[Rfam]
RNA sequence: GAAUCGCUAUGAUGAAUUAUGGAAAACAUCAAAUGCCAGACAUGAAAGAUACCACAGUAUCAAUGAGAUUGUUUCCAUAUUUCUGAGUCAAAU
Numbered sequence: 001g002a003a004u005c006g007c008u009a010u011g012a013u014g015a016a017u018u019a020u021g022g023a024a025a026a027c028a029u030c031a032a033a034u035g036c037c038a039g040a041c042a043u044g045a046a047a048g049a050u051a052c053c054a055c056a057g058u059a060u061c062a063a064u065g066a067g068a069u070u071g072u073u074u075c076c077a078u079a080u081u082u083c084u085g086a087g088u089c090a091a092a093u
Stems, first nucleotide, its partner, number of pairs: 002093001004091001006089001007087001048061004
RNA: Small nucleolar RNA R64/Z200 family
Organism: Carex littledalei